[Rfam]
RNA sequence: CGGGAUCCGUCCCGUGCAAGGAAUGUGGCGGUUCAUCCGCUGAACCUCAGG
Numbered sequence: 001c002g003g004g005a006u007c008c009g010u011c012c013c014g015u016g017c018a019a020g021g022a023a024u025g026u027g028g029c030g031g032u033u034c035a036u037c038c039g040c041u042g043a044a045c046c047u048c049a050g051g
Stems, first nucleotide, its partner, number of pairs: 001014005019047003027041005